[Rfam]
RNA sequence: GAAACUGAAGAACAGAACACCCCAUCUGCUUCUUCAAACACAGCAGGAGGUACAGAAAUGAUUAUGGCAAGAUAUCAUUUCAGUCGUCGCUCGUCAAAUUGACGAUUCAAUUGUUGCUCGUCCACAU
Numbered sequence: 001g002a003a004a005c006u007g008a009a010g011a012a013c014a015g016a017a018c019a020c021c022c023c024a025u026c027u028g029c030u031u032c033u034u035c036a037a038a039c040a041c042a043g044c045a046g047g048a049g050g051u052a053c054a055g056a057a058a059u060g061a062u063u064a065u066g067g068c069a070a071g072a073u074a075u076c077a078u079u080u081c082a083g084u085c086g087u088c089g090c091u092c093g094u095c096a097a098a099u100u101g102a103c104g105a106u107u108c109a110a111u112u113g114u115u116g117c118u119c120g121u122c123c124a125c126a127u
Base pairs, nucleotide, nucleotide: 006036007035008034009033010032011031013028014027015026016025066123067122070118071117074111075110083106084105085104086103087102088101089100091098
Small nucleolar RNA snoR111: a 127-nucleotide sequence from Rhododendron simsii. The family's consensus secondary structure was predicted with WAR. Rfam classes the family as an H/ACA-box small nucleolar RNA. Its family is annotated with nucleolus and RNA processing in the Gene Ontology. A search with the family's covariance model found it, with a score of 60 bits.